[Rfam]
RNA sequence: GUACGUCUUCAGGGCGGGGUGCAAGUCCCCACCGGCGGUAGGUUGCGAAAGCGACGAGCCCGCGAGCGUCCGGCAGUCCGCAACGGCGGCCGGAGUCAGCAGAUCUGGUCCAAGUCCAGAGCCGACGGUCAUAGUCCGGAUGAGAGAAGAUGUGC
Numbered sequence: 001g002u003a004c005g006u007c008u009u010c011a012g013g014g015c016g017g018g019g020u021g022c023a024a025g026u027c028c029c030c031a032c033c034g035g036c037g038g039u040a041g042g043u044u045g046c047g048a049a050a051g052c053g054a055c056g057a058g059c060c061c062g063c064g065a066g067c068g069u070c071c072g073g074c075a076g077u078c079c080g081c082a083a084c085g086g087c088g089g090c091c092g093g094a095g096u097c098a099g100c101a102g103a104u105c106u107g108g109u110c111c112a113a114g115u116c117c118a119g120a121g122c123c124g125a126c127g128g129u130c131a132u133a134g135u136c137c138g139g140a141u142g143a144g145a146g147a148a149g150a151u152g153u154g155c
Stems, first nucleotide, its partner, number of pairs: 003153008017029003031135002033124002035063004058122002066100002104120005126138003
RNA: FMN riboswitch aptamer (RFN element)